[Rfam]
This 33-nucleotide RNA belongs to the Rfam family "S4-Flavobacteria ribosomal protein leader". The family's RNA type in Rfam is cis-regulatory leader.

RNA sequence: AGUUAUCGAAGGAAGCGACCUUAAUUCAUAACU
Numbered sequence: 001a002g003u004u005a006u007c008g009a010a011g012g013a014a015g016c017g018a019c020c021u022u023a024a025u026u027c028a029u030a031a032c033u
Stems, first nucleotide, its partner, number of pairs: 001033006008027001009022004
It is one of the family's seed sequences.